A member of the RNA family "SAM-I/IV (S-adenosyl methionine) riboswitch aptamer", 122 nucleotides long. The sequence is in the family's curated seed alignment.
RNA sequence: ACAGUACAUCAAGAGUUGUUCAUUAAUGAACACGGCAACCUGGGAUUGACACCCAAGGUGCCACUAGCCGAAGGGUUAGGAUGGGGUUUAGCCGAAAGCUAAGCAAAAAAGUGUGAGAAAAU
Numbered sequence: 001a002c003a004g005u006a007c008a009u010c011a012a013g014a015g016u017u018g019u020u021c022a023u024u025a026a027u028g029a030a031c032a033c034g035g036c037a038a039c040c041u042g043g044g045a046u047u048g049a050c051a052c053c054c055a056a057g058g059u060g061c062c063a064c065u066a067g068c069c070g071a072a073g074g075g076u077u078a079g080g081a082u083g084g085g086g087u088u089u090a091g092c093c094g095a096a097a098g099c100u101a102a103g104c105a106a107a108a109a110a111g112u113g114u115g116a117g118a119a120a121a122u
Stems, first nucleotide, its partner, number of pairs: 007083004015033001017032005034062003039058003042054003046117002049114002086104007